Rfam assigns this 353-nucleotide RNA from Aliiruegeria haliotis to the family "Alphaproteobacteria transfer-messenger RNA".
By type it is a non-coding RNA gene.
RNA sequence: CCGCUUGAACCGCGCCGACAAUGCGCCUAGAUUUGAUAUGUUCCCUCGGGAACUAUGGCGAUAAACGCGCUCGUAAUAAGCGGCUCGGACCCGGGGGCGGUACCCGGCGGCUCCACCAAACAUCCCUUGUUGGGGGAUCAUGGGGCCGAAAUAGGAUCGACGGACGUCUAAAGGGGUUAGCUUUCGCUCGGUGAGGUACCACCGUUACCGGUCCGUUAUGCAUAAUUGCCAACAACAAUCAUGCUCCGGUGGCCGUCGCUGCUUAAUGCAGUUGACCAAAACCGAAAUUUAAGCCCAGUCCUCUAGCAAGGGCUGGCGGGGUUCGCAGGCACCUGGCAACAGAAGCCUGCACU
Numbered sequence: 001c002c003g004c005u006u007g008a009a010c011c012g013c014g015c016c017g018a019c020a021a022u023g024c025g026c027c028u029a030g031a032u033u034u035g036a037u038a039u040g041u042u043c044c045c046u047c048g049g050g051a052a053c054u055a056u057g058g059c060g061a062u063a064a065a066c067g068c069g070c071u072c073g074u075a076a077u078a079a080g081c082g083g084c085u086c087g088g089a090c091c092c093g094g095g096g097g098c099g100g101u102a103c104c105c106g107g108c109g110g111c112u113c114c115a116c117c118a119a120a121c122a123u124c125c126c127u128u129g130u131u132g133g134g135g136g137a138u139c140a141u142g143g144g145g146c147c148g149a150a151a152u153a154g155g156a157u158c159g160a161c162g163g164a165c166g167u168c169u170a171a172a173g174g175g176g177u178u179a180g181c182u183u184u185c186g187c188u189c190g191g192u193g194a195g196g197u198a199c200c201a202c203c204g205u206u207a208c209c210g211g212u213c214c215g216u217u218a219u220g221c222a223u224a225a226u227u228g229c230c231a232a233c234a235a236c237a238a239u240c241a242u243g244c245u246c247c248g249g250u251g252g253c254c255g256u257c258g259c260u261g262c263u264u265a266a267u268g269c270a271g272u273u274g275a276c277c278a279a280a281a282c283c284g285a286a287a288u289u290u291a292a293g294c295c296c297a298g299u300c301c302u303c304u305a306g307c308a309a310g311g312g313c314u315g316g317c318g319g320g321g322u323u324c325g326c327a328g329g330c331a332c333c334u335g336g337c338a339a340c341a342g343a344a345g346c347c348u349g350c351a352c353u
Stems, first nucleotide, its partner, number of pairs: 040053005057188005067181002069177004081166002085163003091107005108148007189204004195214002198212003319334004325350006
Pairs were carried over by alignment from the consensus structure, which is taken from published work.
The source organism's lineage runs through Bacteria, Pseudomonadati, Pseudomonadota, Alphaproteobacteria and Aliiruegeria.